[Rfam]
RNA: L31-Coriobacteria ribosomal protein leader
RNA sequence: GCCUUGAUCGGAAACCAAGGCACAGAAGAAGGAG
Numbered sequence: 001g002c003c004u005u006g007a008u009c010g011g012a013a014a015c016c017a018a019g020g021c022a023c024a025g026a027a028g029a030a031g032g033a034g
Base pairs, nucleotide, nucleotide: 001021002020003019004018005017006016008014